[Rfam]
RNA sequence: AUGGUGGGUAGAGGCUGCAAAACUGAUCAGUAGGGUGCGCGAGUUUGACCGCGUUGAACGUAUCUGAAAGGAAGUUUUGCCGAAAUUUACUUCUUAUGGUCAUAAGAAGUAGGUUGGGGGCAUUCUGAAAAAGAAUGUCACUGUCAUUUAAGCAAUUGCUUAAAUGGAGGGCUACAGGGUUG
Numbered sequence: 001a002u003g004g005u006g007g008g009u010a011g012a013g014g015c016u017g018c019a020a021a022a023c024u025g026a027u028c029a030g031u032a033g034g035g036u037g038c039g040c041g042a043g044u045u046u047g048a049c050c051g052c053g054u055u056g057a058a059c060g061u062a063u064c065u066g067a068a069a070g071g072a073a074g075u076u077u078u079g080c081c082g083a084a085a086u087u088u089a090c091u092u093c094u095u096a097u098g099g100u101c102a103u104a105a106g107a108a109g110u111a112g113g114u115u116g117g118g119g120g121c122a123u124u125c126u127g128a129a130a131a132a133g134a135a136u137g138u139c140a141c142u143g144u145c146a147u148u149u150a151a152g153c154a155a156u157u158g159c160u161u162a163a164a165u166g167g168a169g170g171g172c173u174a175c176a177g178g179g180u181u182g
Base pairs, nucleotide, nucleotide: 008175009174010173011172017080018079019078020077021076022075023074024073033065034064035063036062037061038060039059084115085114086113087112088111089110090109091108092107093106094105095104116142117141119139120138121137122136123135124134125133126132144167145166146165147164148163149162150161